Source information:
The record is an 84-nucleotide RNA sequence from Arsenophonus endosymbiont of Aleurodicus floccissimus, which matches "RybB RNA" in Rfam. This ncRNA was identified in a large scale screen of E. coli. The function of this short RNA is unknown. The source organism's lineage runs through Bacteria, Pseudomonadati, Pseudomonadota, Morganellaceae and Arsenophonus. The match comes from Rfam's covariance-model search (49 bits). For this family Rfam cites "Identification of novel small RNAs using comparative genomics and microarrays" (Wassarman et al., Genes Dev, 2001). By type it is a small RNA.
RNA sequence: ACUGCUUUUCUUUGAAUGUCCCCAAAUUAUUGAGGAAUCCGAUAGUUUAAAUUAUGUCCUAUUUAAACUAUCGGUUUUUUAUUU
Numbered sequence: 001a002c003u004g005c006u007u008u009u010c011u012u013u014g015a016a017u018g019u020c021c022c023c024a025a026a027u028u029a030u031u032g033a034g035g036a037a038u039c040c041g042a043u044a045g046u047u048u049a050a051a052u053u054a055u056g057u058c059c060u061a062u063u064u065a066a067a068c069u070a071u072c073g074g075u076u077u078u079u080u081a082u083u084u
Base pairs, nucleotide, nucleotide: 036077037076039074040073041072042071043070044069045068046067047066048065049064050063051062052061